[Rfam]
RNA: Vault RNA
Nucleotides: 092
Base pairs, nucleotide, nucleotide: 002087003086004085005084006083007082012076013075014074015073017072018071019070020069026067027066028065029064
Number, partner (000 for none) and nucleotide at each position: 001000g002087c003086g004085c005084a006083g007082g008000c009000u010000u011000a012076g013075u014074u015073a016000a017072g018071u019070g020069g021000u022000u023000a024000a025000c026067u027066c028065g029064g030000u031000u032000a033000c034000u035000a036000u037000c038000c039000u040000u041000u042000c043000g044000g045000g046000g047000a048000g049000u050000g051000a052000c053000a054000u055000u056000a057000u058000a059000a060000g061000g062000g063000u064029u065028c066027g067026a068000a069020c070019c071018a072017c073015u074014g075013g076012c077000g078000c079000u080000g081000u082007c083006c084005u085004g086003u087002g088000u089000a090000a091000u092000c